[Rfam]
RNA: Small nucleolar RNA snoR8a
Organism: Theobroma cacao
Nucleotides: 093
Base pairs, nucleotide, nucleotide: 003093004092006091007090
Number, partner (000 for none) and nucleotide at each position: 001000g002000a003093g004092u005000u006091a007090g008000c009000g010000a011000u012000a013000a014000u015000u016000a017000u018000a019000a020000a021000a022000a023000u024000a025000a026000u027000u028000u029000c030000u031000c032000g033000u034000u035000c036000u037000g038000a039000c040000u041000u042000a043000c044000u045000u046000a047000a048000u049000a050000u051000g052000g053000a054000c055000a056000u057000g058000a059000c060000a061000a062000a063000c064000u065000u066000c067000u068000u069000a070000u071000u072000a073000c074000a075000c076000c077000c078000a079000u080000u081000g082000a083000a084000u085000c086000u087000g088000a089000g090007c091006u092004a093003c